Rfam assigns this 97-nucleotide RNA from Gossypium schwendimanii to the family "Plastid-rps12 3UTR RNA".
RNA sequence: GGUUUCUAUAGGCACAAAUCCAAUCUUUGAAUUUAAGAUGAGAAAAAAAUUCCCUAUUGGUAGCAAAUGCUUAUCCAUUAAGUGGGGAAAAUCUUAU
Numbered sequence: 001g002g003u004u005u006c007u008a009u010a011g012g013c014a015c016a017a018a019u020c021c022a023a024u025c026u027u028u029g030a031a032u033u034u035a036a037g038a039u040g041a042g043a044a045a046a047a048a049a050u051u052c053c054c055u056a057u058u059g060g061u062a063g064c065a066a067a068u069g070c071u072u073a074u075c076c077a078u079u080a081a082g083u084g085g086g087g088a089a090a091a092u093c094u095u096a097u
Base pairs, nucleotide, nucleotide: 009023011021012020052087053086054085055084056078057077059075060074061073062072063071
The match comes from Rfam's covariance-model search (86 bits). Taxonomically the source falls in Gossypium (Eukaryota, Mesangiospermae, eudicotyledons, Malvales). Rfam classes the family as a cis-regulatory element. The family has 1,299 seed sequences and 1,710 matches in Rfam 15.1. From the family's description: Plastid rpl20 is a non-coding RNA (ncRNA) recognised in plastids. It was found in the three prime untranslated region (3UTR) of rps12 gene, its 3UTR location sugest a role in transcript maduration.